[Rfam]
RNA sequence: GGCAGAGGGAGCCCGGCCUCCGCUACACGCGUAGUGAGGAAAGUCCCCCCACCGUCCGGGCGGGCGACUGGGCGCAAGCCCAGAGCGGGAGACCGCUGGCUCUGGAACAGAAACGAGACCCCUCGGCGCGAGCGAUGAGACCUGCGAACCGAACCGCGAGGUGAGGAAGCUAACCGGUCGAGCGUCGACCGCCGAGAACGGAUGGAACGGCGAAUCCUCGCCGGUGCAAGCCCGCCGCGCUAUGGUAGCCCGGACGCUGCGGCGGGUGCUCAGCCGAAUGCCGGGCCGAACAGAAGGGGGCUUACUCCCCUCCAGCC
Numbered sequence: 001g002g003c004a005g006a007g008g009g010a011g012c013c014c015g016g017c018c019u020c021c022g023c024u025a026c027a028c029g030c031g032u033a034g035u036g037a038g039g040a041a042a043g044u045c046c047c048c049c050c051a052c053c054g055u056c057c058g059g060g061c062g063g064g065c066g067a068c069u070g071g072g073c074g075c076a077a078g079c080c081c082a083g084a085g086c087g088g089g090a091g092a093c094c095g096c097u098g099g100c101u102c103u104g105g106a107a108c109a110g111a112a113a114c115g116a117g118a119c120c121c122c123u124c125g126g127c128g129c130g131a132g133c134g135a136u137g138a139g140a141c142c143u144g145c146g147a148a149c150c151g152a153a154c155c156g157c158g159a160g161g162u163g164a165g166g167a168a169g170c171u172a173a174c175c176g177g178u179c180g181a182g183c184g185u186c187g188a189c190c191g192c193c194g195a196g197a198a199c200g201g202a203u204g205g206a207a208c209g210g211c212g213a214a215u216c217c218u219c220g221c222c223g224g225u226g227c228a229a230g231c232c233c234g235c236c237g238c239g240c241u242a243u244g245g246u247a248g249c250c251c252g253g254a255c256g257c258u259g260c261g262g263c264g265g266g267u268g269c270u271c272a273g274c275c276g277a278a279u280g281c282c283g284g285g286c287c288g289a290a291c292a293g294a295a296g297g298g299g300g301c302u303u304a305c306u307c308c309c310c311u312c313c314a315g316c317c
Stems, first nucleotide, its partner, number of pairs: 001317003005312005010306002012285006021036005041303003045300005050226004057253001059251002063222005068083005084097005098217002103213001105211001119201002122196007141161002230267009
This 317-nucleotide RNA sequence from Salinirubellus salinus belongs to the Rfam family "Archaeal RNase P". About the family: Ribonuclease P (RNase P) is a ubiquitous endoribonuclease, found in archaea, bacteria and eukarya as well as chloroplasts and mitochondria. Its best characterised activity is the generation of mature 5'-ends of tRNAs by cleaving the 5'-leader elements of precursor-tRNAs. Cellular RNase Ps are ribonucleoproteins. RNA from bacterial RNase Ps retains its catalytic activity in the absence of the protein subunit, i.e. it is a ribozyme. The family's RNA type in Rfam is ribozyme. Clan: RNaseP clan. The family's consensus secondary structure is taken from published work.